The family of this 79-nucleotide RNA from Scleropages formosus is "mir-23 microRNA precursor family".

[Rfam]
RNA sequence: UGCGGGGUGGGUUCCUGGCACAGUGAUUUGGUGCAAAAACAGAGACAAAAAUCACAUUGCCAGGGAUUUCCACUCUACC
Numbered sequence: 001u002g003c004g005g006g007g008u009g010g011g012u013u014c015c016u017g018g019c020a021c022a023g024u025g026a027u028u029u030g031g032u033g034c035a036a037a038a039a040c041a042g043a044g045a046c047a048a049a050a051a052u053c054a055c056a057u058u059g060c061c062a063g064g065g066a067u068u069u070c071c072a073c074u075c076u077a078c079c
Stems, first nucleotide, its partner, number of pairs: 002078001004076003008072003011067010023055007

The source organism's lineage runs through Eukaryota, Metazoa, Bilateria, Teleostomi and Scleropages. The match comes from Rfam's covariance-model search (66 bits).